[Rfam]
RNA: ABC transporter regulator
RNA sequence: GUGAACCAUCGUGAUGUGGUUAUUUCAAUCAUAAUCCUUUGAUUGGGUGGGCAAUAAAUUUAUUGCCCUUUUUAUUUU
Numbered sequence: 001g002u003g004a005a006c007c008a009u010c011g012u013g014a015u016g017u018g019g020u021u022a023u024u025u026c027a028a029u030c031a032u033a034a035u036c037c038u039u040u041g042a043u044u045g046g047g048u049g050g051g052c053a054a055u056a057a058a059u060u061u062a063u064u065g066c067c068c069u070u071u072u073u074a075u076u077u078u
Stems, first nucleotide, its partner, number of pairs: 026045006047070001049068008